Description:
This 97-nucleotide RNA from Canis lupus belongs to the Rfam family "mir-8813 microRNA precursor family". The source organism's lineage runs through Eukaryota, Bilateria, Gnathostomata, Sarcopterygii and Canis lupus.
[Rfam]
RNA sequence: UGGUGACCUGAGGCUCCCUGGCUGUCACUCUGUCCCAAGCCCUCCUGGCCCAUGAGGCACAGGCUGAGUCCUAGUAUAGUCCGUGGGGUCAUGACCC
Numbered sequence: 001u002g003g004u005g006a007c008c009u010g011a012g013g014c015u016c017c018c019u020g021g022c023u024g025u026c027a028c029u030c031u032g033u034c035c036c037a038a039g040c041c042c043u044c045c046u047g048g049c050c051c052a053u054g055a056g057g058c059a060c061a062g063g064c065u066g067a068g069u070c071c072u073a074g075u076a077u078a079g080u081c082c083g084u085g086g087g088g089u090c091a092u093g094a095c096c097c
Stems, first nucleotide, its partner, number of pairs: 002096003005090005012081004021075004027069004032064003039058003043054001